[Rfam]
RNA sequence: UGUGGCCAUUUGCUAUGACAAUGUUGCACUACUGUACUACUCACUCAAGCAGUGCAAUAGUAUUGUCAUAGCAUGCGGUCUCCGC
Numbered sequence: 001u002g003u004g005g006c007c008a009u010u011u012g013c014u015a016u017g018a019c020a021a022u023g024u025u026g027c028a029c030u031a032c033u034g035u036a037c038u039a040c041u042c043a044c045u046c047a048a049g050c051a052g053u054g055c056a057a058u059a060g061u062a063u064u065g066u067c068a069u070a071g072c073a074u075g076c077g078g079u080c081u082c083c084g085c
Stems, first nucleotide, its partner, number of pairs: 002082001004080001007077001009075001011073004016068004023058008034042001
Shown here is an 85-nucleotide RNA from Lepisosteus oculatus, a member of the family "mir-301 microRNA precursor family". Gene Ontology terms of the family: miRNA-mediated post-transcriptional gene silencing and RISC complex. For this family Rfam cites "Embryonic stem cell-specific MicroRNAs" (Houbaviy et al., Dev Cell, 2003). The match comes from Rfam's covariance-model search (73 bits).